[Rfam]
RNA: Small nucleolar RNA Z103
RNA sequence: AUGGAAGUGAUGAUCCUUUCCCCAUAUUAUCGACAAUGAUUAUAAUAUGCGUUUAUAUUUCUCUACGGAGAUUUAUCAAGCCAGGACUCUGAUCCAU
Numbered sequence: 001a002u003g004g005a006a007g008u009g010a011u012g013a014u015c016c017u018u019u020c021c022c023c024a025u026a027u028u029a030u031c032g033a034c035a036a037u038g039a040u041u042a043u044a045a046u047a048u049g050c051g052u053u054u055a056u057a058u059u060u061c062u063c064u065a066c067g068g069a070g071a072u073u074u075a076u077c078a079a080g081c082c083a084g085g086a087c088u089c090u091g092a093u094c095c096a097u
Stems, first nucleotide, its partner, number of pairs: 001097005